[Rfam]
RNA sequence: GCGGAAGGCUGGAUGGCCGCUUCGCCGCAUCCGCUCCGGCGGAUGGGCGGGGAGGAAAGUCCGGACUCCGAAAAGACACGGUGCCGGGUAACGCCCGGGCGGGGCAACCCGACGGAAAGCGCCACAGAGAUGAUACCGCCCCGCGGCAGGUCGGACGACCGAAACCACGGCGGGGUAAGGGUGAAAAGGUGGGGUAAGAGCCCACCGCGUCCCUGGCAACAGGGACGGCAUGGCAAGCCCCACCGGGAGCAAUGCCAAAUAGGGACCGCGUGCCGCCGGCCUUCGGGCCGGGGCGGGGCCGCUUUUGCCCCAGCAGGUCCGGGUUGGCAGCUGUAGCCCUGCGGGCAACCGCAGGGUCAGAGGAAUGGUCAUCCAUGGGGGCAACCCCGGGACAGAAUCCGGCUUACAGGCCUUCCGCGCGU
Numbered sequence: 001g002c003g004g005a006a007g008g009c010u011g012g013a014u015g016g017c018c019g020c021u022u023c024g025c026c027g028c029a030u031c032c033g034c035u036c037c038g039g040c041g042g043a044u045g046g047g048c049g050g051g052g053a054g055g056a057a058a059g060u061c062c063g064g065a066c067u068c069c070g071a072a073a074a075g076a077c078a079c080g081g082u083g084c085c086g087g088g089u090a091a092c093g094c095c096c097g098g099g100c101g102g103g104g105c106a107a108c109c110c111g112a113c114g115g116a117a118a119g120c121g122c123c124a125c126a127g128a129g130a131u132g133a134u135a136c137c138g139c140c141c142c143g144c145g146g147c148a149g150g151u152c153g154g155a156c157g158a159c160c161g162a163a164a165c166c167a168c169g170g171c172g173g174g175g176u177a178a179g180g181g182u183g184a185a186a187a188g189g190u191g192g193g194g195u196a197a198g199a200g201c202c203c204a205c206c207g208c209g210u211c212c213c214u215g216g217c218a219a220c221a222g223g224g225a226c227g228g229c230a231u232g233g234c235a236a237g238c239c240c241c242a243c244c245g246g247g248a249g250c251a252a253u254g255c256c257a258a259a260u261a262g263g264g265a266c267c268g269c270g271u272g273c274c275g276c277c278g279g280c281c282u283u284c285g286g287g288c289c290g291g292g293g294c295g296g297g298g299c300c301g302c303u304u305u306u307g308c309c310c311c312a313g314c315a316g317g318u319c320c321g322g323g324u325u326g327g328c329a330g331c332u333g334u335a336g337c338c339c340u341g342c343g344g345g346c347a348a349c350c351g352c353a354g355g356g357u358c359a360g361a362g363g364a365a366u367g368g369u370c371a372u373c374c375a376u377g378g379g380g381g382c383a384a385c386c387c388c389g390g391g392a393c394a395g396a397a398u399c400c401g402g403c404u405u406a407c408a409g410g411c412c413u414u415c416c417g418c419g420c421g422u
Stems, first nucleotide, its partner, number of pairs: 001418010011407001012373007020052007057405003061402005066249004074304002077301001079245005084098005099113001100111004114240002119238002121234003136180002138176007146168001188206006207229001208227008253329004263320005295311005337356008

A member of the RNA family "Bacterial RNase P class A" from Sulfitobacter sp. THAF37, 422 nucleotides long. Pairs were carried over by alignment from the consensus structure, which is taken from published work. Ribonuclease P (RNase P) is a ubiquitous endoribonuclease, found in archaea, bacteria and eukarya as well as chloroplasts and mitochondria. The family's RNA type in Rfam is ribozyme. The family is grouped with related families in Rfam's "RNaseP clan".